This 192-nucleotide sequence from Knufia peltigerae belongs to the Rfam family "Small nucleolar RNA snR80". Its family is annotated with nucleolus and RNA processing in the Gene Ontology. The literature on the family includes a 2004 paper in Nucleic Acids Res by Schattner et al., "Genome-wide searching for pseudouridylation guide snoRNAs: analysis of the Saccharomyces cerevisiae genome". The family is grouped with related families in Rfam's "SNORA28 clan". Pairs were carried over by alignment from the consensus structure, which was predicted with WAR.
[Rfam]
RNA sequence: AAACCUUUGCCAACACUCUGGCCUUUAUCCCUUUCCUUUUUCAAAUCGAGAUUGGAAAACCAUACCCAGGAUAUAGGCCUAUUUUGGUGCAAAGAAGAUCAAACCAAUCUUCUGACACGUUACUCACCACGGCAUUCCGAUCUUUCCGAGGUCUUAUGGAUGCAGUGGUCCAUCUUUAUUCUGUGUCUACAA
Numbered sequence: 001a002a003a004c005c006u007u008u009g010c011c012a013a014c015a016c017u018c019u020g021g022c023c024u025u026u027a028u029c030c031c032u033u034u035c036c037u038u039u040u041u042c043a044a045a046u047c048g049a050g051a052u053u054g055g056a057a058a059a060c061c062a063u064a065c066c067c068a069g070g071a072u073a074u075a076g077g078c079c080u081a082u083u084u085u086g087g088u089g090c091a092a093a094g095a096a097g098a099u100c101a102a103a104c105c106a107a108u109c110u111u112c113u114g115a116c117a118c119g120u121u122a123c124u125c126a127c128c129a130c131g132g133c134a135u136u137c138c139g140a141u142c143u144u145u146c147c148g149a150g151g152u153c154u155u156a157u158g159g160a161u162g163c164a165g166u167g168g169u170c171c172a173u174c175u176u177u178a179u180u181c182u183g184u185g186u187c188u189a190c191a192a
Base pairs, nucleotide, nucleotide: 007092008091009090020079021078022077023076024075026073027072028071029070035055036054114187115186116185117184127168128167129166130165132163133162134161136160137159138158